[Rfam]
RNA sequence: AUAAAAUAUGGCAAUGAUGUCUGCCUUAAACCGCACGCAAUUGUAUUUGCAGCUGAUGACGUCUGUUAUUAA
Number, nucleotide and partner (000 for none) at each position: 001a000002u000003a000004a000005a000006a000007u000008a000009u000010g025011g024012c023013a022014a000015u000016g063017a062018u061019g060020u059021c058022u013023g012024c011025c010026u000027u000028a000029a000030a000031c000032c000033g053034c052035a000036c000037g000038c000039a000040a000041u000042u000043g000044u000045a000046u000047u000048u000049g000050c000051a000052g034053c033054u000055g000056a000057u000058g021059a020060c019061g018062u017063c016064u000065g000066u000067u000068a000069u000070u000071a000072a000
Rfam assigns this 72-nucleotide RNA sequence from Flavobacterium sp. Sd200 to the family "Fluoride riboswitch aptamer (crcB RNA motif)". Lineage of the source: Bacteria > Pseudomonadati > Flavobacteriia > Flavobacteriales > Flavobacterium.